[Rfam]
RNA sequence: UGGAGGAACAACCCCAGUGGCUGUGGCAGCUCUGGAAACCUGGAUUCAGCCCCCACAGUAACUACAGAGCUCUCUGUCUGCAGGGCCUGGAGGCUCUGAGGCGGG
Numbered sequence: 001u002g003g004a005g006g007a008a009c010a011a012c013c014c015c016a017g018u019g020g021c022u023g024u025g026g027c028a029g030c031u032c033u034g035g036a037a038a039c040c041u042g043g044a045u046u047c048a049g050c051c052c053c054c055a056c057a058g059u060a061a062c063u064a065c066a067g068a069g070c071u072c073u074c075u076g077u078c079u080g081c082a083g084g085g086c087c088u089g090g091a092g093g094c095u096c097u098g099a100g101g102c103g104g105g
Stems, first nucleotide, its partner, number of pairs: 002097004009089002012085003019078003023074001025072001028071007036063001040058003

Annotation
This 105-nucleotide sequence from Canis lupus belongs to the Rfam family "mir-8834 microRNA precursor family". Lineage of the source: Eukaryota > Deuterostomia > Amniota > Caniformia > Canis lupus. Gene Ontology terms of the family: miRNA-mediated post-transcriptional gene silencing and RISC complex. Pairs were carried over by alignment from the consensus structure, which was predicted with RNAalifold.